[Rfam]
RNA sequence: UGAGAAGACUGGUGGCAGUUAUUUUAAAAUAAUUGAGGAAAGUCCGUACUCGCACUUACUGGAAUUGUAAGUAGUUUUAGUGCGAGGUCUAAUAAACCUCGGCGGGGCUUUUAUUCUCCUUCCCGACGGCUAGCGAAAUACUUAAGUGCUUUUGCAUAUAGUAUUAGCCUAUAAAAGUGCUAUAGUGACGAUUACUCGGGAAACCGAGGAAGUGAGACGUCGUAAACCCCACUAGCGAGCAAUCCAAAUUCUUUAAAUUGGUAGGAGCAUCAAAGAAAGAGAAAAAAUAAUCUCAAUUGGUAAUUCUCACAAGGAAUUAAGACAGAUCACUAGUUAAAAACAGAAUACGGCUUAUUCUU
Numbered sequence: 001u002g003a004g005a006a007g008a009c010u011g012g013u014g015g016c017a018g019u020u021a022u023u024u025u026a027a028a029a030u031a032a033u034u035g036a037g038g039a040a041a042g043u044c045c046g047u048a049c050u051c052g053c054a055c056u057u058a059c060u061g062g063a064a065u066u067g068u069a070a071g072u073a074g075u076u077u078u079a080g081u082g083c084g085a086g087g088u089c090u091a092a093u094a095a096a097c098c099u100c101g102g103c104g105g106g107g108c109u110u111u112u113a114u115u116c117u118c119c120u121u122c123c124c125g126a127c128g129g130c131u132a133g134c135g136a137a138a139u140a141c142u143u144a145a146g147u148g149c150u151u152u153u154g155c156a157u158a159u160a161g162u163a164u165u166a167g168c169c170u171a172u173a174a175a176a177g178u179g180c181u182a183u184a185g186u187g188a189c190g191a192u193u194a195c196u197c198g199g200g201a202a203a204c205c206g207a208g209g210a211a212g213u214g215a216g217a218c219g220u221c222g223u224a225a226a227c228c229c230c231a232c233u234a235g236c237g238a239g240c241a242a243u244c245c246a247a248a249u250u251c252u253u254u255a256a257a258u259u260g261g262u263a264g265g266a267g268c269a270u271c272a273a274a275g276a277a278a279g280a281g282a283a284a285a286a287a288u289a290a291u292c293u294c295a296a297u298u299g300g301u302a303a304u305u306c307u308c309a310c311a312a313g314g315a316a317u318u319a320a321g322a323c324a325g326a327u328c329a330c331u332a333g334u335u336a337a338a339a340a341c342a343g344a345a346u347a348c349g350g351c352u353u354a355u356u357c358u359u
Stems, first nucleotide, its partner, number of pairs: 004359002007355001008334007016035006040353003044350005049239005054072006078234005083101006102127001103125005128229002131171003139163004146157003177227002179223002192211002195208005243266003270300004301319006
Source information
Shown here is a 359-nucleotide RNA, a member of the family "Bacterial RNase P class B". Ribonuclease P (RNase P) is a ubiquitous endoribonuclease, found in archaea, bacteria and eukarya as well as chloroplasts and mitochondria. Its best characterised activity is the generation of mature 5'-ends of tRNAs by cleaving the 5'-leader elements of precursor-tRNAs. Cellular RNase Ps are ribonucleoproteins. A search with the family's covariance model found it, with a score of 216 bits. The family's RNA type in Rfam is ribozyme. Its family is annotated with tRNA processing, ribonuclease P activity and dimeric ribonuclease P complex in the Gene Ontology. A reference for the family is Frank and Pace (1998), "Ribonuclease P: unity and diversity in a tRNA processing ribozyme", Annu Rev Biochem.